Source information
The record is a 91-nucleotide RNA from Lysinibacillus sphaericus, which matches "pan motif" in Rfam.

RNA sequence: AGGGCAGUAUCCUUGUGAACGGCACCUUCAAUAGCGUUUGACAAUUUACAACAAAUAUCUGCCUUGAUCUUUUAUAGACAGGGACGGAAGA
Number, nucleotide and partner (000 for none) at each position: 001a027002g026003g025004g023005c022006a000007g020008u019009a000010u018011c017012c000013u000014u000015g000016u000017g011018a010019a008020c007021g000022g005023c004024a000025c003026c002027u001028u000029c000030a000031a000032u000033a000034g000035c000036g000037u000038u000039u000040g000041a000042c000043a000044a000045u000046u000047u000048a000049c000050a000051a000052c000053a000054a000055a000056u000057a000058u000059c087060u086061g085062c083063c082064u081065u080066g079067a000068u078069c077070u076071u000072u000073u000074a000075u000076a070077g069078a068079c066080a065081g064082g063083g062084a000085c061086g060087g059088a000089a000090g000091a000

Rfam classes the family as a cis-regulatory element. Lineage of the source: Bacteria > Bacillati > Caryophanales > Bacillaceae > Lysinibacillus.